[Rfam]
Annotation
The family of this 111-nucleotide RNA sequence from Sediminicoccus sp. KRV36 is "TPP riboswitch aptamer (THI element)". It scores 70 bits against the family's covariance model.

RNA sequence: CACCCAUCCAAGGGGAGCCCCUUCCGCAGGGCUGAGAUUCCGCGAGCGACGCGGUGACCCUUCGAACCUGAUCCGGGUCAUGCCGGCGAAGGGAUGGGCAAAGGGCGCCGG
Numbered sequence: 001c002a003c004c005c006a007u008c009c010a011a012g013g014g015g016a017g018c019c020c021c022u023u024c025c026g027c028a029g030g031g032c033u034g035a036g037a038u039u040c041c042g043c044g045a046g047c048g049a050c051g052c053g054g055u056g057a058c059c060c061u062u063c064g065a066a067c068c069u070g071a072u073c074c075g076g077g078u079c080a081u082g083c084c085g086g087c088g089a090a091g092g093g094a095u096g097g098g099c100a101a102a103g104g105g106c107g108c109c110g111g
Base pairs, nucleotide, nucleotide: 007098008097009096010095011061012060013059014058016055017032018031019030020029040054041053042052043051067092068091069090073086074085075084076083
Dot-bracket structure: ......((((((((.(((((........)))).......((((.......)))))..)))).....(((...((((......))))...)))..)))).............